[Rfam]
RNA sequence: CUUGGGCGAUCCAACUGCCUGCCCCAAAACGGGCCAUGGUACCAACCCCAUCGCCAGCGGAUCGCCAGACGU
Numbered sequence: 001c002u003u004g005g006g007c008g009a010u011c012c013a014a015c016u017g018c019c020u021g022c023c024c025c026a027a028a029a030c031g032g033g034c035c036a037u038g039g040u041a042c043c044a045a046c047c048c049c050a051u052c053g054c055c056a057g058c059g060g061a062u063c064g065c066c067a068g069a070c071g072u
Stems, first nucleotide, its partner, number of pairs: 007071002017040003020036002023033003051069002